[Rfam]
RNA: Y RNA
RNA sequence: UGUUGGUCUAGAAGUAGUGAGUCAUCUCAGUUGACUGCUCACAGUGUUAUAGCUCAAACUCAUUGUUCUAUUCUUUCCCCCUUCUCACUACUGCACUUGACAAGUUUUAA
Numbered sequence: 001u002g003u004u005g006g007u008c009u010a011g012a013a014g015u016a017g018u019g020a021g022u023c024a025u026c027u028c029a030g031u032u033g034a035c036u037g038c039u040c041a042c043a044g045u046g047u048u049a050u051a052g053c054u055c056a057a058a059c060u061c062a063u064u065g066u067u068c069u070a071u072u073c074u075u076u077c078c079c080c081c082u083u084c085u086c087a088c089u090a091c092u093g094c095a096c097u098u099g100a101c102a103a104g105u106u107u108u109a110a
Base pairs, nucleotide, nucleotide: 002105003104004103006101007100008099010098011097014094015093016089017088018087019086020085021084029072030071031070033068034067
Dot-bracket structure: .(((.(((.((..((((((((.......(((.((................................)).)))...........))))))...))..))))).))).....